[Rfam]
Rfam assigns this 82-nucleotide sequence from Sedimentitalea arenosa to the family "chrB-a RNA".
RNA sequence: GACAUGGGGAUGACCGCGAACGCCCCGUGAGGCGCCAGCCCAAGGUUCGCAUGUUUGCCUUGAAACAGGAGACAUGCUCAUG
Numbered sequence: 001g002a003c004a005u006g007g008g009g010a011u012g013a014c015c016g017c018g019a020a021c022g023c024c025c026c027g028u029g030a031g032g033c034g035c036c037a038g039c040c041c042a043a044g045g046u047u048c049g050c051a052u053g054u055u056u057g058c059c060u061u062g063a064a065a066c067a068g069g070a071g072a073c074a075u076g077c078u079c080a081u082g
Stems, first nucleotide, its partner, number of pairs: 005027005049077006
Rfam classes the family as a cis-regulatory element. NCBI's taxonomy places the organism under Bacteria, Alphaproteobacteria, Rhodobacterales, Paracoccaceae, Sedimentitalea.